RNA: ALIL pseudoknot
Organism: Rhizobium sp. P32RR-XVIII
RNA sequence: CGCUUGUCGGGCAAGGGGAGCUCGACCGCCCCUUCAAGCGAUGAUCUCGUUCAUCGACGAACAUCGUAGCGUAUUCGGGGUCGAGCCGAUCUGCAGGCUGCUGCCGAUUGCCCCG
Numbered sequence: 001c002g003c004u005u006g007u008c009g010g011g012c013a014a015g016g017g018g019a020g021c022u023c024g025a026c027c028g029c030c031c032c033u034u035c036a037a038g039c040g041a042u043g044a045u046c047u048c049g050u051u052c053a054u055c056g057a058c059g060a061a062c063a064u065c066g067u068a069g070c071g072u073a074u075u076c077g078g079g080g081u082c083g084a085g086c087c088g089a090u091c092u093g094c095a096g097g098c099u100g101c102u103g104c105c106g107a108u109u110g111c112c113c114c115g
Base pairs, nucleotide, nucleotide: 015029017027018026076115077114078113079112080111087110088109090107091106093104094103095102096101